[Rfam]
RNA sequence: UCCAUCGUGAGGUGGAAUCUGAAGGAAGUCGGCGGCAAAACUCCGGUCUGAGGAACACGAACUACAUAUAAGGCUUAAGUCUGUGGGUGAGUUUGCAUGACAAAACAAAGCCCAAUAGCUAUCCGAAACAGGCAAAGUAAAUGUAGCAGAUAUAUGGAGGGAAAGCUUGUGCU
Numbered sequence: 001u002c003c004a005u006c007g008u009g010a011g012g013u014g015g016a017a018u019c020u021g022a023a024g025g026a027a028g029u030c031g032g033c034g035g036c037a038a039a040a041c042u043c044c045g046g047u048c049u050g051a052g053g054a055a056c057a058c059g060a061a062c063u064a065c066a067u068a069u070a071a072g073g074c075u076u077a078a079g080u081c082u083g084u085g086g087g088u089g090a091g092u093u094u095g096c097a098u099g100a101c102a103a104a105a106c107a108a109a110g111c112c113c114a115a116u117a118g119c120u121a122u123c124c125g126a127a128a129c130a131g132g133c134a135a136a137g138u139a140a141a142u143g144u145a146g147c148a149g150a151u152a153u154a155u156g157g158a159g160g161g162a163a164a165g166c167u168u169g170u171g172c173u
Stems, first nucleotide, its partner, number of pairs: 001016006028173001030171002035166002041159005046151005062146006073138003079133006085113004091106004
Group II catalytic intron D1-D4-3: a 173-nucleotide RNA sequence from Lutispora thermophila.
From the family's description: Group II introns are found in rRNA, tRNA and mRNA of organelles in fungi, plants and protists, and also in mRNA in bacteria.
The match comes from Rfam's covariance-model search (160 bits).
The pairing is the family consensus, mapped onto this sequence.
A reference for the family is Bonen and Vogel (2001), "The ins and outs of group II introns", Trends Genet.